[Rfam]
RNA sequence: CGGUGACGAGAAGUGAAACACUCGCAGCACCCUACCGGUCCAUCCAUGUGGCCGUCCUUAGGCUGUGUGAGAAAGUCCCUGAACCAAGGGCCGAAAGGGUAAUAAGAACAAAUUGAUUGUUCGUCUGACCACCAUUAGCUGGUGCAGCCGGUACAUUUGGAAGUUGCGCCACGACGGUUAUUUGCCUGAGCGUUCGACGUCCAUCCAGUACCGGUGUUCGUUCUAAGCGAAGAAACGUUUCUAAUAACAGCAUAGGGCUUACUCUCUUGGUCACC
Numbered sequence: 001c002g003g004u005g006a007c008g009a010g011a012a013g014u015g016a017a018a019c020a021c022u023c024g025c026a027g028c029a030c031c032c033u034a035c036c037g038g039u040c041c042a043u044c045c046a047u048g049u050g051g052c053c054g055u056c057c058u059u060a061g062g063c064u065g066u067g068u069g070a071g072a073a074a075g076u077c078c079c080u081g082a083a084c085c086a087a088g089g090g091c092c093g094a095a096a097g098g099g100u101a102a103u104a105a106g107a108a109c110a111a112a113u114u115g116a117u118u119g120u121u122c123g124u125c126u127g128a129c130c131a132c133c134a135u136u137a138g139c140u141g142g143u144g145c146a147g148c149c150g151g152u153a154c155a156u157u158u159g160g161a162a163g164u165u166g167c168g169c170c171a172c173g174a175c176g177g178u179u180a181u182u183u184g185c186c187u188g189a190g191c192g193u194u195c196g197a198c199g200u201c202c203a204u205c206c207a208g209u210a211c212c213g214g215u216g217u218u219c220g221u222u223c224u225a226a227g228c229g230a231a232g233a234a235a236c237g238u239u240u241c242u243a244a245u246a247a248c249a250g251c252a253u254a255g256g257g258c259u260u261a262c263u264c265u266c267u268u269g270g271u272c273a274c275c
Stems, first nucleotide, its partner, number of pairs: 002275006008268004015241005022069001023067006037052001039050001041048002073260003077257004090100003128143004133138001147215003152210003160202001166193004176186003
RNA: RNase MRP
Organism: Enterobius vermicularis